A member of the RNA family "Ruegeria cis2 sRNA" from Paracoccus onubensis, 150 nucleotides long. The match comes from Rfam's covariance-model search (71 bits). The organism belongs to Paracoccus, within Bacteria. By type it is a small RNA. Pairs were carried over by alignment from the consensus structure, which was predicted with RNAfold.
RNA sequence: GGUCUUUUGCGGCGUGUAGUUGACAAACAGAUAUCCGCGAAGCUGGUCCACGACAUGAAACAGCGGGUUCCAUGAAAACCACGGCAGCACGAAAUUCGGCAAGGAAUUCGCAACGAACAUCUUGCCCGAAGCGAUCAUGUUCACCCGUUG
Numbered sequence: 001g002g003u004c005u006u007u008u009g010c011g012g013c014g015u016g017u018a019g020u021u022g023a024c025a026a027a028c029a030g031a032u033a034u035c036c037g038c039g040a041a042g043c044u045g046g047u048c049c050a051c052g053a054c055a056u057g058a059a060a061c062a063g064c065g066g067g068u069u070c071c072a073u074g075a076a077a078a079c080c081a082c083g084g085c086a087g088c089a090c091g092a093a094a095u096u097c098g099g100c101a102a103g104g105a106a107u108u109c110g111c112a113a114c115g116a117a118c119a120u121c122u123u124g125c126c127c128g129a130a131g132c133g134a135u136c137a138u139g140u141u142c143a144c145c146c147g148u149u150g
Base pairs, nucleotide, nucleotide: 002032003031004030006026010022011021012020036052037051039048040047061150062149063148064147065146067079068078069077083144086141087140088139089138091136095131096130097128098127099126100124101123102122103121104120107116108115